This 434-nucleotide RNA sequence from Aneurinibacillus migulanus belongs to the Rfam family "Group I catalytic intron". A search with the family's covariance model found it, with a score of 76 bits. A reference for the family is Cech (1990), "Self-splicing of group I introns", Annu Rev Biochem. About the family: Group I catalytic introns are large self-splicing ribozymes. They catalyse their own excision from mRNA, tRNA and rRNA precursors in a wide range of organisms. Pairs were carried over by alignment from the consensus structure, which is taken from published work.
[Rfam]
RNA sequence: CGGAUUGUUUAGUUAUACAACCGGAUUAAUUGAGCAAGGCGGGAGUCGUUAAUACCAUGGCGACGUAACUUCGCGAAUUGCUGGAACAUCCUAAAACUAUCUGAGCUACAACGUGGCUGGCAACGGCGAGCGUGAAUGCGUAAAAAUCGGAUAGAUGAAACAAUGGACAAUCAGCAGCCAAGCGCCUUUGGAAACAGAGGUGAAGGUCCAACGACUAUUAAAAGUUCCUACGUUACACCUUAUUCCAUAUGAGGGAGUAAUAUGGAACCAGUAAAUCGUAGUCGACGGAGACGUUACUACGAGGCGCGAAGCAAGGAAGAACUUCAACAGCUUCUUAUUUUAGCUUUACAAUCAGGAGGAUAAUCAAGCUGAAUCGAAAGUGUGAAAAGUUUACUUCCUUGAUGAUAUAGUCUGAACUCAUGUGAAAGCAUGAG
Numbered sequence: 001c002g003g004a005u006u007g008u009u010u011a012g013u014u015a016u017a018c019a020a021c022c023g024g025a026u027u028a029a030u031u032g033a034g035c036a037a038g039g040c041g042g043g044a045g046u047c048g049u050u051a052a053u054a055c056c057a058u059g060g061c062g063a064c065g066u067a068a069c070u071u072c073g074c075g076a077a078u079u080g081c082u083g084g085a086a087c088a089u090c091c092u093a094a095a096a097c098u099a100u101c102u103g104a105g106c107u108a109c110a111a112c113g114u115g116g117c118u119g120g121c122a123a124c125g126g127c128g129a130g131c132g133u134g135a136a137u138g139c140g141u142a143a144a145a146a147u148c149g150g151a152u153a154g155a156u157g158a159a160a161c162a163a164u165g166g167a168c169a170a171u172c173a174g175c176a177g178c179c180a181a182g183c184g185c186c187u188u189u190g191g192a193a194a195c196a197g198a199g200g201u202g203a204a205g206g207u208c209c210a211a212c213g214a215c216u217a218u219u220a221a222a223a224g225u226u227c228c229u230a231c232g233u234u235a236c237a238c239c240u241u242a243u244u245c246c247a248u249a250u251g252a253g254g255g256a257g258u259a260a261u262a263u264g265g266a267a268c269c270a271g272u273a274a275a276u277c278g279u280a281g282u283c284g285a286c287g288g289a290g291a292c293g294u295u296a297c298u299a300c301g302a303g304g305c306g307c308g309a310a311g312c313a314a315g316g317a318a319g320a321a322c323u324u325c326a327a328c329a330g331c332u333u334c335u336u337a338u339u340u341u342a343g344c345u346u347u348a349c350a351a352u353c354a355g356g357a358g359g360a361u362a363a364u365c366a367a368g369c370u371g372a373a374u375c376g377a378a379a380g381u382g383u384g385a386a387a388a389g390u391u392u393a394c395u396u397c398c399u400u401g402a403u404g405a406u407a408u409a410g411u412c413u414g415a416a417c418u419c420a421u422g423u424g425a426a427a428g429c430a431u432g433a434g
Base pairs, nucleotide, nucleotide: 001024003022005020006019007018008017069311070310071309072308074306075305079176080175081174082173083172084171089167090166091165177207178206184201185200186199191195211413213412214411215410216409217408314399315398316397317396318395319394321392419432420431421430422429423428